[Rfam]
RNA sequence: CCUCAACGACAGGGGAGCGCCACCGCGGCGCUGAGAGUGCGCGCGAGCGCAGACCCUCGAACCUGAUCCGGUUCAUACCGGCGCUAGGGAGUCGAGCAUCUCAGGAG
Numbered sequence: 001c002c003u004c005a006a007c008g009a010c011a012g013g014g015g016a017g018c019g020c021c022a023c024c025g026c027g028g029c030g031c032u033g034a035g036a037g038u039g040c041g042c043g044c045g046a047g048c049g050c051a052g053a054c055c056c057u058c059g060a061a062c063c064u065g066a067u068c069c070g071g072u073u074c075a076u077a078c079c080g081g082c083g084c085u086a087g088g089g090a091g092u093c094g095a096g097c098a099u100c101u102c103a104g105g106a107g
Base pairs, nucleotide, nucleotide: 007094008093009092010091011057012056013055014054017031018030019029020028021027038051039050040049041048042047062088063087064086065085068081069080070079071078
Background: A member of the RNA family "TPP riboswitch aptamer (THI element)" from Kocuria rhizophila, 107 nucleotides long. NCBI's taxonomy places the organism under Bacteria, Bacillati, Actinomycetes, Micrococcales, Kocuria rhizophila.